[Rfam]
RNA sequence: UGUCUCCUCCAUCCUCCUUUUUUGGUGGAUUUUAAGCGCGGUCACUUAGGUGAACCGCGUUUUUUUUG
Numbered sequence: 001u002g003u004c005u006c007c008u009c010c011a012u013c014c015u016c017c018u019u020u021u022u023u024g025g026u027g028g029a030u031u032u033u034a035a036g037c038g039c040g041g042u043c044a045c046u047u048a049g050g051u052g053a054a055c056c057g058c059g060u061u062u063u064u065u066u067u068g
Stems, first nucleotide, its partner, number of pairs: 008029006035061008
RNA: Betaproteobacteria toxic small RNA
Organism: Sulfuricella denitrificans